[Rfam]
Shown here is a 97-nucleotide RNA from Pyruvatibacter mobilis, a member of the family "Bacterial small signal recognition particle RNA". From the family's description: The signal recognition particle (SRP) is a universally conserved ribonucleoprotein involved in the co-translational targeting of proteins to membranes. Pairs were carried over by alignment from the consensus structure, which is taken from published work. Gene Ontology terms of the family: SRP-dependent cotranslational protein targeting to membrane, signal sequence recognition and signal recognition particle, plasma membrane targeting.
RNA sequence: GGAGGUUGGCGGCGGACAAGUCCCUCGCCAACCCGGUCAGGUCCGGAAGGAAGCAGCCGUAACGAGUUCGGCUUGGGUCGUCUGUCCAGCCUCCCAC
Numbered sequence: 001g002g003a004g005g006u007u008g009g010c011g012g013c014g015g016a017c018a019a020g021u022c023c024c025u026c027g028c029c030a031a032c033c034c035g036g037u038c039a040g041g042u043c044c045g046g047a048a049g050g051a052a053g054c055a056g057c058c059g060u061a062a063c064g065a066g067u068u069c070g071g072c073u074u075g076g077g078u079c080g081u082c083u084g085u086c087c088a089g090c091c092u093c094c095c096a097c
Stems, first nucleotide, its partner, number of pairs: 004091005011082004017075006024066004034059004042051003